[Rfam]
RNA: SAM riboswitch aptamer (S box leader)
RNA sequence: UGCUCAUCCAGAGAGGUCGAGGGCUCGGGCCCAUUGACGCCUCGGCAACCCCUUCGUCGGUGGAGACACGGACGGGGAAGGUGCCAAACCCGGUCCCGCCGGAAGGCGCGGUCGAUGAGCG
Numbered sequence: 001u002g003c004u005c006a007u008c009c010a011g012a013g014a015g016g017u018c019g020a021g022g023g024c025u026c027g028g029g030c031c032c033a034u035u036g037a038c039g040c041c042u043c044g045g046c047a048a049c050c051c052c053u054u055c056g057u058c059g060g061u062g063g064a065g066a067c068a069c070g071g072a073c074g075g076g077g078a079a080g081g082u083g084c085c086a087a088a089c090c091c092g093g094u095c096c097c098g099c100c101g102g103a104a105g106g107c108g109c110g111g112u113c114g115a116u117g118a119g120c121g
Stems, first nucleotide, its partner, number of pairs: 001121008013043005021032003026093001028091002044085004049081002051077004095110001097108004